Eukaryotic large subunit ribosomal RNA: a 490-nucleotide part of an RNA from Entomortierella parvispora. Its Rfam clan is "LSU clan". Lineage of the source: Eukaryota > Mortierellomycotina > Mortierellales > Mortierellaceae > Entomortierella. The match comes from Rfam's covariance-model search (3401 bits).
RNA sequence: UAGAACAAUGUAGAUAAGGGAAGUCGGCAAAAUAGAUCCGUAACUUCGGGAAAAGGAUUGGCUCUAAGGAAUGGGUGCAUUGGGCCCUUGUGCAGAGGUUUGAGGAUUCUUACGGAACUAUCUGGGCAACCGGACGGAUCUGUUCGAGACUUCUUACGGACGCGCUUGGGCUGCUUCGGCGUCCGGUGCACACUUAACAUUCAACUUAGAACUGGUACGGACAAGGGGAAUCUGACUGUCUAAUUAAAACAUAGCAUUGCGAUGGCCAGAAAGUGGUGUUGACGCAAUGUGAUUUCUGCCCAGUGCUCUGAAUGUCAAAGUGAAGAAAUUCAACCAAGCGCGGGUAAACGGCGGGAGUAACUAUGACUCUCUUAAGGUAGCCAAAUGCCUCGUCAUCUAAUUAGUGACGCGCAUGAAUGGAUUAACGAGAUUCCCACUGUCCCUAUCUACUAUCUAGCGAAACCACAGCCAAGGGAACGGGCUUGGCAAA
Numbered sequence: 001u002a003g004a005a006c007a008a009u010g011u012a013g014a015u016a017a018g019g020g021a022a023g024u025c026g027g028c029a030a031a032a033u034a035g036a037u038c039c040g041u042a043a044c045u046u047c048g049g050g051a052a053a054a055g056g057a058u059u060g061g062c063u064c065u066a067a068g069g070a071a072u073g074g075g076u077g078c079a080u081u082g083g084g085c086c087c088u089u090g091u092g093c094a095g096a097g098g099u100u101u102g103a104g105g106a107u108u109c110u111u112a113c114g115g116a117a118c119u120a121u122c123u124g125g126g127c128a129a130c131c132g133g134a135c136g137g138a139u140c141u142g143u144u145c146g147a148g149a150c151u152u153c154u155u156a157c158g159g160a161c162g163c164g165c166u167u168g169g170g171c172u173g174c175u176u177c178g179g180c181g182u183c184c185g186g187u188g189c190a191c192a193c194u195u196a197a198c199a200u201u202c203a204a205c206u207u208a209g210a211a212c213u214g215g216u217a218c219g220g221a222c223a224a225g226g227g228g229a230a231u232c233u234g235a236c237u238g239u240c241u242a243a244u245u246a247a248a249a250c251a252u253a254g255c256a257u258u259g260c261g262a263u264g265g266c267c268a269g270a271a272a273g274u275g276g277u278g279u280u281g282a283c284g285c286a287a288u289g290u291g292a293u294u295u296c297u298g299c300c301c302a303g304u305g306c307u308c309u310g311a312a313u314g315u316c317a318a319a320g321u322g323a324a325g326a327a328a329u330u331c332a333a334c335c336a337a338g339c340g341c342g343g344g345u346a347a348a349c350g351g352c353g354g355g356a357g358u359a360a361c362u363a364u365g366a367c368u369c370u371c372u373u374a375a376g377g378u379a380g381c382c383a384a385a386u387g388c389c390u391c392g393u394c395a396u397c398u399a400a401u402u403a404g405u406g407a408c409g410c411g412c413a414u415g416a417a418u419g420g421a422u423u424a425a426c427g428a429g430a431u432u433c434c435c436a437c438u439g440u441c442c443c444u445a446u447c448u449a450c451u452a453u454c455u456a457g458c459g460a461a462a463c464c465a466c467a468g469c470c471a472a473g474g475g476a477a478c479g480g481g482c483u484u485g486g487c488a489a490a
Stems, first nucleotide, its partner, number of pairs: 001456004010450007018442003035059005044049001060213002063210006069202005075191009085170003090165003102153004107148003112143005118137002121134005214218001226435007233427002237251003254290008265277004294421003298352003303349002305345004310341001313340003321332004353371006372376001392408005469486005